[Rfam]
Shown here is a 75-nucleotide sequence from Orthoflavivirus nilense, a member of the family "Flavivirus 3'UTR stem loop IV". From the family's description: Flavivirus 3' stem-loop IV (Flavivirus SLIV) is a conserved RNA that confers resistance to Xrn1 exonuclease. The family's RNA type in Rfam is cis-regulatory element. On this family, see Pijlman et al., Cell Host Microbe 2008: "A highly structured, nuclease-resistant, noncoding RNA produced by flaviviruses is required for pathogenicity". Taxonomically the source falls in Orthoflavivirus nilense (Viruses, Riboviria, Flasuviricetes, Flaviviridae).
RNA sequence: CAGUUGUCAGACCACACGCAAGUGUGCUACUCUGCGAAGAGUACUGUCUGCGUUAGAGCCCCAGGAGGACUGGGA
Numbered sequence: 001c002a003g004u005u006g007u008c009a010g011a012c013c014a015c016a017c018g019c020a021a022g023u024g025u026g027c028u029a030c031u032c033u034g035c036g037a038a039g040a041g042u043a044c045u046g047u048c049u050g051c052g053u054u055a056g057a058g059c060c061c062c063a064g065g066a067g068g069a070c071u072g073g074g075a
Stems, first nucleotide, its partner, number of pairs: 006044001008050005013026004028043004033039001060074005
Dot-bracket structure: .....[.(((((((((......)))).((((.(.....)))))].))))).........(((((.....))))).